Notes:
The family of this 176-nucleotide sequence from Candidatus Frankia alpina is "c-di-AMP riboswitch aptamer (ydaO/yuaA leader)". Rfam links the family to the GO terms regulation of gene expression and cyclic-di-AMP binding. Lineage of the source: Bacteria > Actinomycetota > Actinomycetes > Frankiaceae > Frankia. It scores 69 bits against the family's covariance model. This family represents a conserved RNA structure found upstream of the ydaO and yuaA genes in Bacillus subtilis and related genes in other bacteria.
RNA sequence: UCGGGUGGCACGCCGAACCCUGCUCCCACCCGACGAGAAUCAAACCUGUGGCAGGGAUGGGGGAACCAAUUUCGGGCGCCGAGUUCGGGCGCCCUAGGGGUGAAGCCGAGAACCGCGGCCGGGCAUUCCCAGCCCGAACCCGACAGCUCACCUCGUAGGCGUGGGGAAGGGUAACU
Dot-bracket structure: ..........((((...(((((((.........................)))))))((((((....(.............................)(((.....(((.......)))..((((.......))))...))).........)))))).))))...............